Nucleotides: 053
Base pairs, nucleotide, nucleotide: 005024006023007022008021009020010019011018012017025045026044027043028042030040031039
Number, partner (000 for none) and nucleotide at each position: 001000g002000a003000a004000a005024g006023g007022c008021c009020a010019u011018g012017u013000u014000u015000c016000g017012g018011c019010a020009u021008g022007g023006c024005u025045g026044g027043g028042u029000a030040c031039g032000g033000u034000a035000c036000u037000u038000c039031c040030g041000c042028a043027c044026c045025c046000c047000a048000a049000u050000u051000a052000g053000g

Rfam assigns this 53-nucleotide RNA sequence to the family "S4-Clostridia ribosomal protein leader". By type it is a cis-regulatory leader. The family's consensus secondary structure is taken from published work. The sequence is in the family's curated seed alignment. The literature on the family includes a 2020 paper in BMC Microbiol by Eckert and Weinberg, "Discovery of 20 novel ribosomal leader candidates in bacteria and archaea".